[Rfam]
The record is a 102-nucleotide RNA sequence from Oryza barthii, which matches "MIR5534 microRNA precursor family" in Rfam. The base pairs follow the family's consensus structure, which was predicted with RNAalifold. A search with the family's covariance model found it, with a score of 82 bits.
RNA sequence: AACUUUAGCGCCUCGACGACAACAGCUAGAAUGGCGGGCUCAUCAGGGGACAAUCCUCCGUCGCCGCAGCCAUUCUAGCUGUUGUCGUCUAGGCGCUAAAGU
Numbered sequence: 001a002a003c004u005u006u007a008g009c010g011c012c013u014c015g016a017c018g019a020c021a022a023c024a025g026c027u028a029g030a031a032u033g034g035c036g037g038g039c040u041c042a043u044c045a046g047g048g049g050a051c052a053a054u055c056c057u058c059c060g061u062c063g064c065c066g067c068a069g070c071c072a073u074u075c076u077a078g079c080u081g082u083u084g085u086c087g088u089c090u091a092g093g094c095g096c097u098a099a100a101g102u
Stems, first nucleotide, its partner, number of pairs: 002102012015089021037067001041063001044060001046058001048056003